Shown here is a 136-nucleotide RNA sequence, a member of the family "FTHFS RNA". Rfam classes the family as a cis-regulatory element. Pairs were carried over by alignment from the consensus structure, which is taken from published work.
[Rfam]
RNA sequence: AUCGAUAAAAGCGUACGCAAUGGACGCCCUUAUCAGCCAUCCCCGUAUGCGUAAAGUCAUACCAACGGCUUUAUGCGUAAAUCCUGUAUGGGCCCGGGCCAUUACAACGGCAGGGUACCAACAACAAUACAAGGAG
Number, nucleotide and partner (000 for none) at each position: 001a000002u036003c000004g034005a033006u032007a031008a030009a000010a000011g000012c000013g000014u000015a000016c000017g000018c000019a000020a000021u000022g000023g000024a000025c000026g000027c000028c000029c000030u008031u007032a006033u005034c004035a000036g002037c000038c000039a000040u000041c000042c000043c000044c000045g000046u000047a078048u077049g076050c075051g074052u073053a072054a000055a000056g069057u068058c067059a000060u000061a000062c000063c000064a000065a000066c000067g058068g057069c056070u000071u000072u053073a052074u051075g050076c049077g048078u047079a000080a000081a000082u000083c000084c000085u000086g000087u000088a000089u000090g119091g118092g116093c115094c000095c113096g000097g000098g000099c000100c000101a000102u000103u000104a000105c000106a000107a000108c000109g000110g000111c000112a000113g095114g000115g093116u092117a000118c091119c090120a000121a000122c000123a000124a000125c000126a000127a000128u000129a000130c000131a000132a000133g000134g000135a000136g000